[Rfam]
RNA sequence: GGGCCAGCUUUAGCUCAGCGGUUACUUCGACGUGCUCCAGUUUGAGCAGGCUAUGUAACGUGGUCGGUUCGAGCAACACAACCAGCCGCUUGCCUAUCUGGUGAGUGGUUGGUUCGAGACCCGCGGGCGCUCUCUGGCCCUUUU
Numbered sequence: 001g002g003g004c005c006a007g008c009u010u011u012a013g014c015u016c017a018g019c020g021g022u023u024a025c026u027u028c029g030a031c032g033u034g035c036u037c038c039a040g041u042u043u044g045a046g047c048a049g050g051c052u053a054u055g056u057a058a059c060g061u062g063g064u065c066g067g068u069u070c071g072a073g074c075a076a077c078a079c080a081a082c083c084a085g086c087c088g089c090u091u092g093c094c095u096a097u098c099u100g101g102u103g104a105g106u107g108g109u110u111g112g113u114u115c116g117a118g119a120c121c122c123g124c125g126g127g128c129g130c131u132c133u134c135u136g137g138c139c140c141u142u143u144u
Base pairs, nucleotide, nucleotide: 002139003138004137005136006135007134013128014127015126016125018124019123020122021121026118027117028116029115030114
A member of the RNA family "Vault RNA" from Rattus norvegicus, 144 nucleotides long. Rfam describes the family as follows. This family of RNAs are found as part of the enigmatic vault ribonucleoprotein complex. The complex consists of a major vault protein (MVP), two minor vault proteins (VPARP and TEP1), and several small untranslated RNA molecules. It has been suggested that the vault complex is involved in drug resistance. The sequence is in the family's curated seed alignment.